Description:
A member of the RNA family "MIR2275 microRNA precursor family" from Triticum urartu, 88 nucleotides long. The family's consensus secondary structure was predicted with RNAalifold. The source organism's lineage runs through Eukaryota, Streptophyta, Poales, Triticodae and Triticum. Rfam links the family to the GO terms miRNA-mediated post-transcriptional gene silencing and RISC complex.

RNA sequence: GCUCUGAAAGUAAGAGUUGUAGGAAACUGAACUCUCCUUCCAUGUUUCUUCACGAGUUCAGUUUUCUCCAACAUCUUAUCUUCAGAGC
Numbered sequence: 001g002c003u004c005u006g007a008a009a010g011u012a013a014g015a016g017u018u019g020u021a022g023g024a025a026a027c028u029g030a031a032c033u034c035u036c037c038u039u040c041c042a043u044g045u046u047u048c049u050u051c052a053c054g055a056g057u058u059c060a061g062u063u064u065u066c067u068c069c070a071a072c073a074u075c076u077u078a079u080c081u082u083c084a085g086a087g088c
Stems, first nucleotide, its partner, number of pairs: 004085005011078004016072004021067001023065008032056002
Dot-bracket structure: ...(((((..((((.((((.(.((((((((.((.....................)).)))))))).).))))..))))..)))))...